[Rfam]
RNA sequence: AUGAACCGCGCGGGAGAGUCGUCGGGCGUCAGGAUCGAAGCAUCCGGACGCGACCGCGACACCGAAGGAGCAAGCCUCCCCGCCAAUCUCUCAGGUGCACGUACCGUGCGGCUCGG
Numbered sequence: 001a002u003g004a005a006c007c008g009c010g011c012g013g014g015a016g017a018g019u020c021g022u023c024g025g026g027c028g029u030c031a032g033g034a035u036c037g038a039a040g041c042a043u044c045c046g047g048a049c050g051c052g053a054c055c056g057c058g059a060c061a062c063c064g065a066a067g068g069a070g071c072a073a074g075c076c077u078c079c080c081c082g083c084c085a086a087u088c089u090c091u092c093a094g095g096u097g098c099a100c101g102u103a104c105c106g107u108g109c110g111g112c113u114c115g116g
Stems, first nucleotide, its partner, number of pairs: 006111008019059004061096003064092002068090003074083002
Glycine riboswitch aptamer: a 116-nucleotide RNA sequence from Microbacterium paludicola.
The pairing is the family consensus, mapped onto this sequence.
The organism belongs to Microbacterium, within Bacteria.